Rfam assigns this 130-nucleotide RNA from Rhododendron simsii to the family "U11 spliceosomal RNA".
Rfam classes the family as a spliceosomal small nuclear RNA.
Its Rfam clan is "U1 clan".
The base pairs follow the family's consensus structure, which is taken from published work.
NCBI's taxonomy places the organism under Eukaryota, Streptophytina, Mesangiospermae, Ericales, Rhododendron.
RNA sequence: AAAAAGAGUCUGUUGGCUAAAUAUGUCAUGUCCGCCAUAGUCAGGUGAGUGCUGUAUGGCUAUCAAGACAUAUGGCUGAUAUAAUUUGUGGUACUAUUAUAGGGUUGACUCGCUUUGGCCGACCUCUUAA
Dot-bracket structure: .......(((.(.((((.......))))(((.(((.........))).)))(((((((..........)))))))).)))..................(.(.(((((..(((...))).)))))).)...